The family of this 52-nucleotide RNA sequence from Gulo gulo is "mir-1302 microRNA precursor family". NCBI's taxonomy places the organism under Eukaryota, Gnathostomata, Caniformia, Mustelidae, Gulo. It scores 65 bits against the family's covariance model. For this family Rfam cites "Application of massively parallel sequencing to microRNA profiling and discovery in human embryonic stem cells" (Morin et al., Genome Res, 2008). Rfam links the family to the GO terms RISC complex and miRNA-mediated post-transcriptional gene silencing. The base pairs follow the family's consensus structure, which was predicted with WAR.
RNA sequence: CUUCAAGUGUAAGUAUGUCCCAUGCAUUAUUUGGGAUAUACUUAUAAUAAAA
Numbered sequence: 001c002u003u004c005a006a007g008u009g010u011a012a013g014u015a016u017g018u019c020c021c022a023u024g025c026a027u028u029a030u031u032u033g034g035g036a037u038a039u040a041c042u043u044a045u046a047a048u049a050a051a052a
Base pairs, nucleotide, nucleotide: 006048008046009045010044011043012042014040015039016038018036019035020034021033022031